[Rfam]
RNA: Bacterial small subunit ribosomal RNA, nucleotides 583 to 937
Organism: uncultured bacterium
RNA sequence: GGCGUAAAGGGUGCGUAGGUGGCGGGGUAAGUCGGAUGUGAAAUCUCCGAGCUCAACUCGGAAAUGGCAUUGGAAACUACCCUGCUUGAGGGUUGGAGGGGGGACUGGAAUACUUGGUGUAGCAGUGAAAUGCGUAGAUAUCAAGUGGAACACCAGUGGCGAAGGCGAGUCCCUGGACAACUCGUGACACUGAGGCACGAAAGCUAGGGGAGCAAACAGGAUUAGAUACCCUGGUAGUCCUAGCUGUAAACGGUGCACGUUUGCUGUAAAAGGAAUCGACCCCUUUUGUGGCGUAGCCAACGCGUUAAACGUGCCGCCUGGGAAGUACGGUCGCAAGAUUAAAACUCAAAGAAAU
Numbered sequence: 001g002g003c004g005u006a007a008a009g010g011g012u013g014c015g016u017a018g019g020u021g022g023c024g025g026g027g028u029a030a031g032u033c034g035g036a037u038g039u040g041a042a043a044u045c046u047c048c049g050a051g052c053u054c055a056a057c058u059c060g061g062a063a064a065u066g067g068c069a070u071u072g073g074a075a076a077c078u079a080c081c082c083u084g085c086u087u088g089a090g091g092g093u094u095g096g097a098g099g100g101g102g103g104a105c106u107g108g109a110a111u112a113c114u115u116g117g118u119g120u121a122g123c124a125g126u127g128a129a130a131u132g133c134g135u136a137g138a139u140a141u142c143a144a145g146u147g148g149a150a151c152a153c154c155a156g157u158g159g160c161g162a163a164g165g166c167g168a169g170u171c172c173c174u175g176g177a178c179a180a181c182u183c184g185u186g187a188c189a190c191u192g193a194g195g196c197a198c199g200a201a202a203g204c205u206a207g208g209g210g211a212g213c214a215a216a217c218a219g220g221a222u223u224a225g226a227u228a229c230c231c232u233g234g235u236a237g238u239c240c241u242a243g244c245u246g247u248a249a250a251c252g253g254u255g256c257a258c259g260u261u262u263g264c265u266g267u268a269a270a271a272g273g274a275a276u277c278g279a280c281c282c283c284u285u286u287u288g289u290g291g292c293g294u295a296g297c298c299a300a301c302g303c304g305u306u307a308a309a310c311g312u313g314c315c316g317c318c319u320g321g322g323a324a325g326u327a328c329g330g331u332c333g334c335a336a337g338a339u340u341a342a343a344a345c346u347c348a349a350a351g352a353a354a355u
Stems, first nucleotide, its partner, number of pairs: 001318003009315001011198004016192001018191003022085007030078002032074002035071005046062006089185001091183001092181004100174007107151001111147008122133003159166002203244006212238002217233004255314006263292011296303002320347003329340004